[Rfam]
RNA sequence: UGCCUUUUUGUGUUGCUCGUUCACUGUGUUACCAAUGAAUGCGGUGUCAACAAAGGCAUAAAACAACGCUUGUGUCGGCCUUAACAAGGUGUCUUACUGUGUCACCUUGUGUUAAGUUCUACAGCAAGCAAAUUG
Numbered sequence: 001u002g003c004c005u006u007u008u009u010g011u012g013u014u015g016c017u018c019g020u021u022c023a024c025u026g027u028g029u030u031a032c033c034a035a036u037g038a039a040u041g042c043g044g045u046g047u048c049a050a051c052a053a054a055g056g057c058a059u060a061a062a063a064c065a066a067c068g069c070u071u072g073u074g075u076c077g078g079c080c081u082u083a084a085c086a087a088g089g090u091g092u093c094u095u096a097c098u099g100u101g102u103c104a105c106c107u108u109g110u111g112u113u114a115a116g117u118u119c120u121a122c123a124g125c126a127a128g129c130a131a132a133u134u135g
Stems, first nucleotide, its partner, number of pairs: 002057006011049002014046004018041006025034001069128004073123003077119002083117001087113002089110002095104001
The record is a 135-nucleotide RNA sequence from Albula glossodonta, which matches "Small nucleolar RNA SNORA13" in Rfam.
Rfam classes the family as an H/ACA-box small nucleolar RNA.
NCBI's taxonomy places the organism under Eukaryota, Eumetazoa, Chordata, Actinopterygii, Albula.
A search with the family's covariance model found it, with a score of 67 bits.